Background: The family of this 114-nucleotide RNA sequence from Oryzias javanicus is "U5 spliceosomal RNA". Pairs were carried over by alignment from the consensus structure, which is taken from published work. The organism belongs to Oryzias, within Eukaryota.
RNA sequence: GCACUCUUGUUUCUCUUCAGAUCGUACAAAUCUUUCGCCUUUUACUAAAGAUUUCCGUGGAGAGGAACAACAAGAGUUAGAUUCAAUUUUUUGAUGCCCUGCAGCAGUAGGGCU
Numbered sequence: 001g002c003a004c005u006c007u008u009g010u011u012u013c014u015c016u017u018c019a020g021a022u023c024g025u026a027c028a029a030a031u032c033u034u035u036c037g038c039c040u041u042u043u044a045c046u047a048a049a050g051a052u053u054u055c056c057g058u059g060g061a062g063a064g065g066a067a068c069a070a071c072a073a074g075a076g077u078u079a080g081a082u083u084c085a086a087u088u089u090u091u092u093g094a095u096g097c098c099c100u101g102c103a104g105c106a107g108u109a110g111g112g113c114u
Base pairs, nucleotide, nucleotide: 003077004076005075006074009068010067011066012065013064014063015062016061017060018059019058028054029053030052031051032050033049034048035047094114096113097112098111099110100109101108